Shown here is a 173-nucleotide RNA sequence from Proteobacteria bacterium CAG:139, a member of the family "Lysine riboswitch aptamer". The match comes from Rfam's covariance-model search (97 bits). The base pairs follow the family's consensus structure, which is taken from published work. The organism belongs to Pseudomonadota, within Bacteria.
RNA sequence: GAAUCAGGUAGAGGUGCAGACUUUAUAAGUAGUUGCUUCCUUUAAAGGAGAAUCGGGAGGCAGCAAAAGGAAAGUUUGCCGAAGGCCGAUUGAUCUCUCCUAAAUUGAUCGGACCUGGGCCGUCGAAAAACAUUCGGCGGACUGUCACUGAACAGUGGAGCGCUACCCGAGGU
Numbered sequence: 001g002a003a004u005c006a007g008g009u010a011g012a013g014g015u016g017c018a019g020a021c022u023u024u025a026u027a028a029g030u031a032g033u034u035g036c037u038u039c040c041u042u043u044a045a046a047g048g049a050g051a052a053u054c055g056g057g058a059g060g061c062a063g064c065a066a067a068a069g070g071a072a073a074g075u076u077u078g079c080c081g082a083a084g085g086c087c088g089a090u091u092g093a094u095c096u097c098u099c100c101u102a103a104a105u106u107g108a109u110c111g112g113a114c115c116u117g118g119g120c121c122g123u124c125g126a127a128a129a130a131c132a133u134u135c136g137g138c139g140g141a142c143u144g145u146c147a148c149u150g151a152a153c154a155g156u157g158g159a160g161c162g163c164u165a166c167c168c169g170a171g172g173u
Stems, first nucleotide, its partner, number of pairs: 007167005016079009032064008083116003086112008117143002120140008145158005